Rfam assigns this 153-nucleotide RNA from Citrus unshiu to the family "Small nucleolar RNA snoR136". On this family, see Chen and Wu, Nucleic Acids Res 2009: "Mining small RNA sequencing data: a new approach to identify small nucleolar RNAs in Arabidopsis". Rfam links the family to the GO terms nucleolus and RNA processing. By type it is an H/ACA-box small nucleolar RNA. The match comes from Rfam's covariance-model search (65 bits). The organism belongs to Citrus, within Eukaryota.
RNA sequence: AGGGCUUCAAAUAAUUUUGAUUUUCGUUAUUGUUUCUUGCUUACUAUUUGUGAGGCAAUAUCAUCACUCAAUGGAGCCCAAAAAUUUGUUCCCCUCGCUAUCCAGGGCGGUAUUUGUAUUUGUGCUGUACUUGGACGUCGGGGAACUACAUUG
Number, nucleotide and partner (000 for none) at each position: 001a000002g079003g078004g077005c076006u000007u000008c073009a072010a000011a000012u000013a068014a000015u000016u000017u000018u000019g065020a064021u000022u000023u060024u000025c000026g000027u000028u000029a059030u058031u057032g056033u055034u054035u053036c052037u000038u000039g051040c050041u000042u000043a000044c000045u000046a000047u000048u000049u000050g040051u039052g036053a035054g034055g033056c032057a031058a030059u029060a023061u000062c000063a000064u020065c019066a000067c000068u013069c000070a000071a000072u009073g008074g000075a000076g005077c004078c003079c002080a000081a000082a000083a000084a000085u000086u000087u000088g146089u145090u144091c143092c142093c141094c140095u000096c137097g136098c000099u000100a000101u135102c134103c133104a132105g131106g000107g000108c000109g000110g125111u124112a123113u000114u000115u000116g000117u000118a000119u000120u000121u000122g000123u112124g111125c110126u000127g000128u000129a000130c000131u105132u104133g103134g102135a101136c097137g096138u000139c000140g094141g093142g092143g091144a090145a089146c088147u000148a000149c000150a000151u000152u000153g000